The family of this 143-nucleotide sequence from Neomesorhizobium albiziae is "Alphaproteobacterial sRNA BjrC1505". The base pairs follow the family's consensus structure.
RNA sequence: CGGGCCGUUAAGAGUCUGUUAAGCUUUACAGGUGUUUACUGUGUGCAUCCAGUGAUCUGGAUUCUUACCGAGUGGUUGGUGCCACUCCGUUUGACGCCUCCCUGUUAAACUCCUGAGAGCCGCCAUUUCGCGGCUCUUUUUUU
Numbered sequence: 001c002g003g004g005c006c007g008u009u010a011a012g013a014g015u016c017u018g019u020u021a022a023g024c025u026u027u028a029c030a031g032g033u034g035u036u037u038a039c040u041g042u043g044u045g046c047a048u049c050c051a052g053u054g055a056u057c058u059g060g061a062u063u064c065u066u067a068c069c070g071a072g073u074g075g076u077u078g079g080u081g082c083c084a085c086u087c088c089g090u091u092u093g094a095c096g097c098c099u100c101c102c103u104g105u106u107a108a109a110c111u112c113c114u115g116a117g118a119g120c121c122g123c124c125a126u127u128u129c130g131c132g133g134c135u136c137u138u139u140u141u142u143u
Stems, first nucleotide, its partner, number of pairs: 001043002004040001005014001022033001024031002047062004070087006093106004115138009